[Rfam]
RNA sequence: UGUGUGUGCUAGGAAGGCAGUGUAUUGUUAGCUGGUUGAAAAUCUGACACCAGCUAGCUUACAUCUGCUAUCUUAUUGCACAUA
Numbered sequence: 001u002g003u004g005u006g007u008g009c010u011a012g013g014a015a016g017g018c019a020g021u022g023u024a025u026u027g028u029u030a031g032c033u034g035g036u037u038g039a040a041a042a043u044c045u046g047a048c049a050c051c052a053g054c055u056a057g058c059u060u061a062c063a064u065c066u067g068c069u070a071u072c073u074u075a076u077u078g079c080a081c082a083u084a
Stems, first nucleotide, its partner, number of pairs: 001084008010075004016069005022062003027058010
RNA: mir-449 microRNA precursor family